The record is a 69-nucleotide RNA sequence from Rattus norvegicus, which matches "mir-450 microRNA precursor family" in Rfam.

RNA sequence: GAACUAUUUUUGCGAUGUGUUCCUAAUAUGUACUAUGAGUGUAUUGGGGACGCUUCGCAUUCAUGGUUC
Number, nucleotide and partner (000 for none) at each position: 001g069002a068003a067004c066005u065006a064007u063008u000009u000010u000011u059012g058013c057014g056015a055016u000017g053018u052019g051020u050021u049022c048023c047024u046025a045026a044027u043028a042029u041030g040031u000032a000033c000034u000035a000036u000037g000038a000039g000040u030041g029042u028043a027044u026045u025046g024047g023048g022049g021050a020051c019052g018053c017054u000055u015056c014057g013058c012059a011060u000061u000062c000063a007064u006065g005066g004067u003068u002069c001
The family has 36 seed sequences and 374 matches in Rfam 15.1.
It is one of the family's seed sequences.
A reference for the family is Ahn et al. (2010), "MicroRNA transcriptome in the newborn mouse ovaries determined by massive parallel sequencing", Mol Hum Reprod.
The family's consensus secondary structure was predicted with RNAalifold.